Background: The family of this 118-nucleotide RNA from Cetobacterium sp. 2A is "FMN riboswitch aptamer (RFN element)". Gene Ontology term of the family: FMN binding. The family's consensus secondary structure is taken from published work.

RNA sequence: GAUAUACUUCAGGGCAGGGUGUGAUUCCCUACCGGCGGUUAGAGUCCGCGAAGCCUUUUGGCUUGAACUGGUGAAACUCCAGUACCGACAGUUAAAGUCUGGAUGGAAGAAGUGUUAU
Numbered sequence: 001g002a003u004a005u006a007c008u009u010c011a012g013g014g015c016a017g018g019g020u021g022u023g024a025u026u027c028c029c030u031a032c033c034g035g036c037g038g039u040u041a042g043a044g045u046c047c048g049c050g051a052a053g054c055c056u057u058u059u060g061g062c063u064u065g066a067a068c069u070g071g072u073g074a075a076a077c078u079c080c081a082g083u084a085c086c087g088a089c090a091g092u093u094a095a096a097g098u099c100u101g102g103a104u105g106g107a108a109g110a111a112g113u114g115u116u117a118u
Base pairs, nucleotide, nucleotide: 004115005114006113007112008111009110010109017029018028019027031098032097033087034086035049036048037047038046044085045084052063053062054061067083068082069081070080071079089101090100091099